[Rfam]
Shown here is a 97-nucleotide RNA sequence from Clostridium sp. CAG:964, a member of the family "SAM riboswitch aptamer (S box leader)". Gene Ontology term of the family: regulation of gene expression. Rfam describes the family as follows. The SAM riboswitch is found upstream of a number of genes which code for proteins involved in methionine or cysteine biosynthesis in Gram-positive bacteria. The SAM riboswitch acts at the level of transcription termination control. The organism belongs to Clostridium, within Bacteria.
RNA sequence: AACUUAUCAAGAGUGACUGAGGGACAGGCCCUGUGAAGUCCGGCAACCUGCAUUAUGGCAAGGUGCCAAAUCCUGCGGUUAAGCCGAGAGAUGAGAU
Numbered sequence: 001a002a003c004u005u006a007u008c009a010a011g012a013g014u015g016a017c018u019g020a021g022g023g024a025c026a027g028g029c030c031c032u033g034u035g036a037a038g039u040c041c042g043g044c045a046a047c048c049u050g051c052a053u054u055a056u057g058g059c060a061a062g063g064u065g066c067c068a069a070a071u072c073c074u075g076c077g078g079u080u081a082a083g084c085c086g087a088g089a090g091a092u093g094a095g096a097u
Stems, first nucleotide, its partner, number of pairs: 001097001003095006013041001015040003021031003025075004042067004047063002049060003071089001076086004